Shown here is an 88-nucleotide RNA from Neorhizobium galegae, a member of the family "Glycine riboswitch aptamer".

RNA sequence: CCAGACUCGCUGGGAGAAGCCGCUUCAAUGCGGUGCCGAAGGAGCAACCGCCCCGGAAACUCUCAGGCAAAAGGACCAGCAGUCGACC
Numbered sequence: 001c002c003a004g005a006c007u008c009g010c011u012g013g014g015a016g017a018a019g020c021c022g023c024u025u026c027a028a029u030g031c032g033g034u035g036c037c038g039a040a041g042g043a044g045c046a047a048c049c050g051c052c053c054c055g056g057a058a059a060c061u062c063u064c065a066g067g068c069a070a071a072a073g074g075a076c077c078a079g080c081a082g083u084c085g086a087c088c
Base pairs, nucleotide, nucleotide: 007082009080010079011078012077013076020033021032022031023030035068036067037066038064039063042062043061044060048056049055
Description
NCBI's taxonomy places the organism under Bacteria, Alphaproteobacteria, Hyphomicrobiales, Neorhizobium galegae, Neorhizobium galegae bv. orientalis. The pairing is the family consensus, mapped onto this sequence.